[Rfam]
Nucleotides: 139
Base pairs, nucleotide, nucleotide: 012123013122014121018035019034020033021032022031023030037118038117039116040115041114053104054103055102061082062081063080064079065078066077067076085098086097
Number, partner (000 for none) and nucleotide at each position: 001000g002000u003000a004000a005000a006000g007000u008000u009000c010000a011000g012123g013122c014121c015000g016000a017000a018035u019034u020033u021032c022031c023030u024000c025000a026000c027000a028000c029000u030023a031022g032021g033020a034019a035018a036000a037118c038117g039116g040115g041114g042000g043000a044000a045000c046000c047000a048000g049000u050000u051000a052000u053104g054103g055102g056000u057000g058000a059000a060000u061082u062081g063080a064079u065078c066077u067076u068000g069000c070000u071000u072000c073000a074000g075000a076067g077066g078065g079064a080063u081062c082061a083000u084000a085098g086097g087000g088000g089000a090000c091000c092000u093000u094000c095000a096000a097086c098085c099000g100000a101000a102055u103054c104053c105000u106000u107000a108000a109000g110000c111000u112000a113000a114041c115040c116039u117038c118037g119000c120000a121014g122013g123012c124000a125000c126000c127000g128000g129000a130000a131000g132000g133000g134000g135000c136000a137000a138000c139000u